The family of this 144-nucleotide RNA sequence from Gossypium anomalum is "MIR7502 microRNA precursor family". Pairs were carried over by alignment from the consensus structure, which was predicted with RNAalifold. Rfam links the family to the GO terms RISC complex and miRNA-mediated post-transcriptional gene silencing. Rfam 15.1 lists 74,505 matches to the family in 24 species.
RNA sequence: UGUUAAAAAUUUUAUCCAUUUGUACUAUUAAAAAUUGGAGUGGUUGAAGGAAUAAUCAUAUUUGAGACGUGACGUGCCACAAAUACCUCAUGUUGACGUAUAGGGACUAGUUUUUAACAGUAGAAAUAGAUGAAAAAUUUAACA
Numbered sequence: 001u002g003u004u005a006a007a008a009a010u011u012u013u014a015u016c017c018a019u020u021u022g023u024a025c026u027a028u029u030a031a032a033a034a035u036u037g038g039a040g041u042g043g044u045u046g047a048a049g050g051a052a053u054a055a056u057c058a059u060a061u062u063u064g065a066g067a068c069g070u071g072a073c074g075u076g077c078c079a080c081a082a083a084u085a086c087c088u089c090a091u092g093u094u095g096a097c098g099u100a101u102a103g104g105g106a107c108u109a110g111u112u113u114u115u116a117a118c119a120g121u122a123g124a125a126a127u128a129g130a131u132g133a134a135a136a137a138u139u140u141a142a143c144a
Stems, first nucleotide, its partner, number of pairs: 002143006010135007018127004023122004028117006